[Rfam]
RNA sequence: GCAGCGCCGGCCCUCCCGGGCCGGCGAGGAUCGCAAC
Numbered sequence: 001g002c003a004g005c006g007c008c009g010g011c012c013c014u015c016c017c018g019g020g021c022c023g024g025c026g027a028g029g030a031u032c033g034c035a036a037c
Base pairs, nucleotide, nucleotide: 005026006025007024008023009022010021011020012019013018

Overview:
Shown here is a 37-nucleotide sequence from Actinokineospora spheciospongiae, a member of the family "CRISPR RNA direct repeat element". The base pairs follow the family's consensus structure, which was predicted with WAR. A search with the family's covariance model found it, with a score of 43 bits.